[Rfam]
RNA sequence: ACAAAGGCUCUUUUCAGAGCCACCCACCUACAAUGGAGAGUCAAAG
Number, nucleotide and partner (000 for none) at each position: 001a000002c000003a000004a000005a000006g021007g020008c019009u018010c017011u016012u000013u000014u000015c000016a011017g010018a009019g008020c007021c006022a000023c000024c000025c000026a000027c000028c000029u000030a000031c000032a000033a000034u000035g000036g000037a000038g000039a000040g000041u000042c000043a000044a000045a000046g000

Annotation
Shown here is a 46-nucleotide RNA from Pleuronectes platessa, a member of the family "Histone 3' UTR stem-loop". The literature on the family includes a 1995 paper in Nucleic Acids Res by Williams and Marzluff, "The sequence of the stem and flanking sequences at the 3' end of histone mRNA are critical determinants for the binding of the stem-loop binding protein". A search with the family's covariance model found it, with a score of 37 bits. The organism belongs to Pleuronectes, within Eukaryota. By type it is a cis-regulatory element.